This 230-nucleotide RNA sequence belongs to the Rfam family "RT-16 RNA". The family's RNA type in Rfam is small RNA.
[Rfam]
RNA sequence: CUUGAGAUGUUUUCCCUGAAAAAUAUCAAUGAAAGGCAACAACUUGGGCUACAGGCACGAUCAUAGUGCUUAUGUGUCAAAAACUUUUAGUUUUUGAGCACUAUCAGAAAUCACAAAGAUUUCUGAAGCCAUCAAAUACAAUAGCGAUAGCAAGUAGUAAUGAAGAACCUUGGGUAAGUUUGGAGCGAAACCUAAAGUUAUGGUGAAUCUUGAUGAUCAUGCUACGACUG
Numbered sequence: 001c002u003u004g005a006g007a008u009g010u011u012u013u014c015c016c017u018g019a020a021a022a023a024u025a026u027c028a029a030u031g032a033a034a035g036g037c038a039a040c041a042a043c044u045u046g047g048g049c050u051a052c053a054g055g056c057a058c059g060a061u062c063a064u065a066g067u068g069c070u071u072a073u074g075u076g077u078c079a080a081a082a083a084c085u086u087u088u089a090g091u092u093u094u095u096g097a098g099c100a101c102u103a104u105c106a107g108a109a110a111u112c113a114c115a116a117a118g119a120u121u122u123c124u125g126a127a128g129c130c131a132u133c134a135a136a137u138a139c140a141a142u143a144g145c146g147a148u149a150g151c152a153a154g155u156a157g158u159a160a161u162g163a164a165g166a167a168c169c170u171u172g173g174g175u176a177a178g179u180u181u182g183g184a185g186c187g188a189a190a191c192c193u194a195a196a197g198u199u200a201u202g203g204u205g206a207a208u209c210u211u212g213a214u215g216a217u218c219a220u221g222c223u224a225c226g227a228c229u230g
Stems, first nucleotide, its partner, number of pairs: 001048006008041004013036002055222003059218006108211002114205001141201005148194003157186002